[Rfam]
RNA sequence: UGACCGUUCCAUUUUCGGAACCAAGGCCAUACGGACAGCCGGGUCAACUGCCGA
Numbered sequence: 001u002g003a004c005c006g007u008u009c010c011a012u013u014u015u016c017g018g019a020a021c022c023a024a025g026g027c028c029a030u031a032c033g034g035a036c037a038g039c040c041g042g043g044u045c046a047a048c049u050g051c052c053g054a
Stems, first nucleotide, its partner, number of pairs: 001046005006021005
Shown here is a 54-nucleotide RNA sequence, a member of the family "Streptococcus sRNA SpF59 (ldcC RNA)".
The family's RNA type in Rfam is small RNA.
A reference for the family is Mann et al. (2012), "Control of virulence by small RNAs in Streptococcus pneumoniae", PLoS Pathog.
The family's consensus secondary structure was predicted with mfold.